Shown here is a 47-nucleotide sequence from Virgibacillus indicus, a member of the family "PreQ1 (pre queuosine) riboswitch aptamer". Gene Ontology term of the family: queuosine biosynthetic process. This family is a bacterial riboswitch that binds to the metabolite preQ1, an intermediate in the biosynthesis of the modified nucleoside queuosine from GTP. One example of this riboswitch is located in the leader of the Bacillus subtilis ykvJKLM (queCDEF) operon which encodes four genes necessary for queuosine production. On this family, see Flemmich et al., Nat Commun 2021: "A natural riboswitch scaffold with self-methylation activity". The organism belongs to Virgibacillus, within Bacteria.

[Rfam]
RNA sequence: AUAAAAGAGGUUCUUAGCUUCAACCCUCUAUAAAAAACUAAGACAAA
Numbered sequence: 001a002u003a004a005a006a007g008a009g010g011u012u013c014u015u016a017g018c019u020u021c022a023a024c025c026c027u028c029u030a031u032a033a034a035a036a037a038c039u040a041a042g043a044c045a046a047a
Stems, first nucleotide, its partner, number of pairs: 006029005015040002